A member of the RNA family "mraW RNA" from Stackebrandtia albiflava, 111 nucleotides long. Pairs were carried over by alignment from the consensus structure, which is taken from published work.
[Rfam]
Nucleotides: 111
Base pairs, nucleotide, nucleotide: 010098011097012096013095014094015093018090019089021087022086023085024084025083027081028080029079030078031077033075034074038069039068041066042065043064044063045062046061047060048059
Number, partner (000 for none) and nucleotide at each position: 001000g002000g003000c004000g005000a006000u007000c008000c009000g010098a011097a012096u013095c014094a015093c016000c017000u018090g019089g020000u021087c022086u023085c024084c025083a026000c027081c028080c029079g030078c031077c032000c033075g034074c035000g036000a037000c038069g039068c040000a041066c042065c043064u044063g045062a046061c047060a048059c049000c050000a051000c052000u053000u054000c055000c056000c057000c058000a059048g060047u061046g062045u063044c064043a065042g066041g067000c068039g069038c070000a071000g072000c073000c074034g075033c076000a077031g078030g079029c080028g081027g082000a083025u084024g085023g086022g087021g088000u089019c090018c091000a092000a093015g094014u095013g096012g097011u098010u099000c100000g101000g102000a103000g104000u105000c106000g107000a108000c109000a110000g111000a